Shown here is a 95-nucleotide sequence from Chthoniobacter flavus, a member of the family "Bacterial small signal recognition particle RNA". It scores 54 bits against the family's covariance model. The family's consensus secondary structure is taken from published work. Rfam links the family to the GO terms signal recognition particle, plasma membrane targeting and SRP-dependent cotranslational protein targeting to membrane, signal sequence recognition. For this family Rfam cites "SRPDB: Signal Recognition Particle Database" (Rosenblad et al., Nucleic Acids Res, 2003).
[Rfam]
RNA sequence: CGUCAGGGACUACGGAUUGAAGGCAGACAAACCCCGCCAGGGCCGGAAGGCAGCAACGGUAGUCCGACCUUCCUUGUCGUAGCUCUCUGACGGCU
Numbered sequence: 001c002g003u004c005a006g007g008g009a010c011u012a013c014g015g016a017u018u019g020a021a022g023g024c025a026g027a028c029a030a031a032c033c034c035c036g037c038c039a040g041g042g043c044c045g046g047a048a049g050g051c052a053g054c055a056a057c058g059g060u061a062g063u064c065c066g067a068c069c070u071u072c073c074u075u076g077u078c079g080u081a082g083c084u085c086u087c088u089g090a091c092g093g094c095u
Stems, first nucleotide, its partner, number of pairs: 004089005010082006016074001019072005024066001026064003034059003042051003